A member of the RNA family "SmY spliceosomal RNA" from Caenorhabditis brenneri, 80 nucleotides long.
It is annotated as a spliceosomal small nuclear RNA.
[Rfam]
RNA sequence: CGUUGUAAUGCAACUCUCUCAGGGUCUUGCAUAAGACGCAGUGAACAAUUUUUGCAGACCCUAUUCUUAAGAAUAGGGUG
Numbered sequence: 001c002g003u004u005g006u007a008a009u010g011c012a013a014c015u016c017u018c019u020c021a022g023g024g025u026c027u028u029g030c031a032u033a034a035g036a037c038g039c040a041g042u043g044a045a046c047a048a049u050u051u052u053u054g055c056a057g058a059c060c061c062u063a064u065u066c067u068u069a070a071g072a073a074u075a076g077g078g079u080g
Stems, first nucleotide, its partner, number of pairs: 022039001024037001026035003058079009
The match comes from Rfam's covariance-model search (68 bits). NCBI's taxonomy places the organism under Eukaryota, Metazoa, Protostomia, Rhabditidae, Caenorhabditis. Pairs were carried over by alignment from the consensus structure, which is taken from published work.